[Rfam]
RNA sequence: AUAUCGAAGUACGGCAAUGAGAAGCUUAUGAACCGAGUCAGAUCCGGAAGGAAGCAGCUAUAAAUAGGAUUUCUCAUGUGCUGUACUUUUUUGCGGAAAC
Numbered sequence: 001a002u003a004u005c006g007a008a009g010u011a012c013g014g015c016a017a018u019g020a021g022a023a024g025c026u027u028a029u030g031a032a033c034c035g036a037g038u039c040a041g042a043u044c045c046g047g048a049a050g051g052a053a054g055c056a057g058c059u060a061u062a063a064a065u066a067g068g069a070u071u072u073c074u075c076a077u078g079u080g081c082u083g084u085a086c087u088u089u090u091u092u093g094c095g096g097a098a099a100c
Base pairs, nucleotide, nucleotide: 005093006092007091008090009086010085011084012083013082014081015078017077018076019075020074021073022072025068026067027066028065029064036059037058038057043052044051045050